[Rfam]
RNA sequence: AUCGCUGACCGCCUCGAAGGUGCCCGAUGCCCAGGCCGCCAGCGAAAGUGCCAACACCCUGCUGCCCACGGCGCUGGCCGGCGUGAACUUCGCCCUCCACACCG
Numbered sequence: 001a002u003c004g005c006u007g008a009c010c011g012c013c014u015c016g017a018a019g020g021u022g023c024c025c026g027a028u029g030c031c032c033a034g035g036c037c038g039c040c041a042g043c044g045a046a047a048g049u050g051c052c053a054a055c056a057c058c059c060u061g062c063u064g065c066c067c068a069c070g071g072c073g074c075u076g077g078c079c080g081g082c083g084u085g086a087a088c089u090u091c092g093c094c095c096u097c098c099a100c101a102c103c104g
Base pairs, nucleotide, nucleotide: 003016029036038065039064081102083100084099